RNA sequence: UGUCCUGGUUUGGUCUAAACCAGGCCAAUUUUUCCUUCGGUGAUUUUUUACUUAGAAGAGACUUAGCUGAAAGUAAAAAAUCACCGAAGGAAAAAUUGGCCUGGUUUAGACCAAACCU
Number, nucleotide and partner (000 for none) at each position: 001u000002g000003u000004c000005c000006u000007g000008g000009u000010u000011u000012g000013g000014u000015c000016u108017a107018a106019a105020c104021c103022a102023g000024g100025c099026c098027a097028a096029u095030u094031u093032u092033u091034c090035c089036u088037u087038c086039g000040g084041u083042g082043a081044u080045u079046u078047u077048u076049u075050a074051c073052u072053u071054a000055g000056a000057a000058g000059a000060g000061a000062c000063u000064u000065a000066g000067c000068u000069g000070a000071a053072a052073g051074u050075a049076a048077a047078a046079a045080a044081u043082c042083a041084c040085c000086g038087a037088a036089g035090g034091a033092a032093a031094a030095a029096u028097u027098g026099g025100c024101c000102u022103g021104g020105u019106u018107u017108a016109g000110a000111c000112c000113a000114a000115a000116c000117c000118u000
mir-36 microRNA precursor family: a 118-nucleotide RNA sequence from Nyctibius bracteatus. It scores 49 bits against the family's covariance model. The literature on the family includes a 2004 paper in RNA by Ohler et al., "Patterns of flanking sequence conservation and a characteristic upstream motif for microRNA gene identification". Rfam links the family to the GO terms miRNA-mediated post-transcriptional gene silencing and RISC complex. The source organism's lineage runs through Eukaryota, Dipnotetrapodomorpha, Coelurosauria, Nyctibiiformes and Nyctibius.